[Rfam]
RNA sequence: CCGGGCUUCUGCCAUCAGCGAGGUAUAGAGUUCCUACGUGAUUAUUAAAAUUGUAGGAACUUCAUACCGUGCUCUUGGAGUGCCUAU
Numbered sequence: 001c002c003g004g005g006c007u008u009c010u011g012c013c014a015u016c017a018g019c020g021a022g023g024u025a026u027a028g029a030g031u032u033c034c035u036a037c038g039u040g041a042u043u044a045u046u047a048a049a050a051u052u053g054u055a056g057g058a059a060c061u062u063c064a065u066a067c068c069g070u071g072c073u074c075u076u077g078g079a080g081u082g083c084c085u086a087u
Stems, first nucleotide, its partner, number of pairs: 012078003017073004022068005028062010